mir-33 microRNA precursor family: a 68-nucleotide sequence from Salmo salar. Pairs were carried over by alignment from the consensus structure, which was predicted with PFOLD. Its family is annotated with RISC complex and gene silencing by miRNA in the Gene Ontology. The literature on the family includes a 2009 paper in BMC Genomics by Li et al., "Direct sequencing and expression analysis of a large number of miRNAs in Aedes aegypti and a multi-species survey of novel mosquito miRNAs".

RNA sequence: CUGUGGUGCAUUGUAGUUGCAUUGCACUGGGCUGCAGGAUCAUGCAAUGUGUCUGCAGUGCAGUACAG
Numbered sequence: 001c002u003g004u005g006g007u008g009c010a011u012u013g014u015a016g017u018u019g020c021a022u023u024g025c026a027c028u029g030g031g032c033u034g035c036a037g038g039a040u041c042a043u044g045c046a047a048u049g050u051g052u053c054u055g056c057a058g059u060g061c062a063g064u065a066c067a068g
Base pairs, nucleotide, nucleotide: 001068002067003066004065006064007062008061009060010059011058012057013056014055015054016053019050021048022047023046024045025044026043

The family has 73 seed sequences and 1,467 matches in Rfam 15.1.